[Rfam]
RNA sequence: AGACGGUCCCGAGGACCCGCAGUGAAGCAUGACACUUAAUGCGAUGACCCGCGCAUCAUCUUACCUAAGCUUGAAUCCUGGUAGUUUACUAUCAGUGACAGGUGCUACAUGACCCUCUUCAGCAUGUGUUGUCAAAUGUCUGGUUAAAUCCGCUAACAUGCGCAAUCCUUACUGUUAGUUACUGUCUAGCAGUGUACGGCUGAUAUAGUCGUAGAAUAGGGCUAAGAGAGGUCCCCAUGACCUUUAUGCUUAGGGCUGUAGUUGUGCUGCGAAGAGUUUUACAAUGUGAGGCGAUAAGCUAAUCAUCAAAGAAAUUCACACGGAUUGAGGUGCUAAGUUAACCUCAUGAAAUAGGAAUUGCGAGUAAUCGUGGAGUAAUGCGCCACGGUGAACAUACCACUCGGGAUGUACUAAUUACUCAUCAAGUCGGGAAAGAAUUGAGUUUAUGAAAAUGGAUGACACCUAUGUAAACUAUCAGUAACGCUUAUACUACAUUUUUGUAGUGUAGAGCCUGAUAUGUAGGUAGGAAGAGUCUCUUUAGUAGGCUUUCUCAAUCUGGACUAAGUUGAAAUAUAGGAGUGGUACGGGAACGUGCUGCUG
Numbered sequence: 001a002g003a004c005g006g007u008c009c010c011g012a013g014g015a016c017c018c019g020c021a022g023u024g025a026a027g028c029a030u031g032a033c034a035c036u037u038a039a040u041g042c043g044a045u046g047a048c049c050c051g052c053g054c055a056u057c058a059u060c061u062u063a064c065c066u067a068a069g070c071u072u073g074a075a076u077c078c079u080g081g082u083a084g085u086u087u088a089c090u091a092u093c094a095g096u097g098a099c100a101g102g103u104g105c106u107a108c109a110u111g112a113c114c115c116u117c118u119u120c121a122g123c124a125u126g127u128g129u130u131g132u133c134a135a136a137u138g139u140c141u142g143g144u145u146a147a148a149u150c151c152g153c154u155a156a157c158a159u160g161c162g163c164a165a166u167c168c169u170u171a172c173u174g175u176u177a178g179u180u181a182c183u184g185u186c187u188a189g190c191a192g193u194g195u196a197c198g199g200c201u202g203a204u205a206u207a208g209u210c211g212u213a214g215a216a217u218a219g220g221g222c223u224a225a226g227a228g229a230g231g232u233c234c235c236c237a238u239g240a241c242c243u244u245u246a247u248g249c250u251u252a253g254g255g256c257u258g259u260a261g262u263u264g265u266g267c268u269g270c271g272a273a274g275a276g277u278u279u280u281a282c283a284a285u286g287u288g289a290g291g292c293g294a295u296a297a298g299c300u301a302a303u304c305a306u307c308a309a310a311g312a313a314a315u316u317c318a319c320a321c322g323g324a325u326u327g328a329g330g331u332g333c334u335a336a337g338u339u340a341a342c343c344u345c346a347u348g349a350a351a352u353a354g355g356a357a358u359u360g361c362g363a364g365u366a367a368u369c370g371u372g373g374a375g376u377a378a379u380g381c382g383c384c385a386c387g388g389u390g391a392a393c394a395u396a397c398c399a400c401u402c403g404g405g406a407u408g409u410a411c412u413a414a415u416u417a418c419u420c421a422u423c424a425a426g427u428c429g430g431g432a433a434a435g436a437a438u439u440g441a442g443u444u445u446a447u448g449a450a451a452a453u454g455g456a457u458g459a460c461a462c463c464u465a466u467g468u469a470a471a472c473u474a475u476c477a478g479u480a481a482c483g484c485u486u487a488u489a490c491u492a493c494a495u496u497u498u499u500g501u502a503g504u505g506u507a508g509a510g511c512c513u514g515a516u517a518u519g520u521a522g523g524u525a526g527g528a529a530g531a532g533u534c535u536c537u538u539u540a541g542u543a544g545g546c547u548u549u550c551u552c553a554a555u556c557u558g559g560a561c562u563a564a565g566u567u568g569a570a571a572u573a574u575a576g577g578a579g580u581g582g583u584a585c586g587g588g589a590a591c592g593u594g595c596u597g598c599u600g
Stems, first nucleotide, its partner, number of pairs: 001412002003409003007406007019361005024270001026268008034259002040055004064254007076098002078095007101243002104241001106239002110237002112232003115228004122161006128137003141152003167220003172192007195213007274317007286306003291299002326346006367389007415575001417572001420568002425562004430557003435552002440548007451538002454535003578599009

Shown here is a 600-nucleotide part of an RNA, a member of the family "Bacterial small subunit ribosomal RNA".
A search with the family's covariance model found it, with a score of 764 bits.